[Rfam]
RNA sequence: AAGAAGUUUGUCAUAAUACGUCGUAUAAUCUUGGGGAUAUGGCCCAAAAGUUUCUACCGAGCUGCCGUAAAUAGCUUGACUACGAGGUUAAUGCCACAGGGA
Numbered sequence: 001a002a003g004a005a006g007u008u009u010g011u012c013a014u015a016a017u018a019c020g021u022c023g024u025a026u027a028a029u030c031u032u033g034g035g036g037a038u039a040u041g042g043c044c045c046a047a048a049a050g051u052u053u054c055u056a057c058c059g060a061g062c063u064g065c066c067g068u069a070a071a072u073a074g075c076u077u078g079a080c081u082a083c084g085a086g087g088u089u090a091a092u093g094c095c096a097c098a099g100g101g102a
Stems, first nucleotide, its partner, number of pairs: 018088002021085005029049001031047005058078007
RNA: Purine riboswitch aptamer
Organism: Bacillus sp. T33-2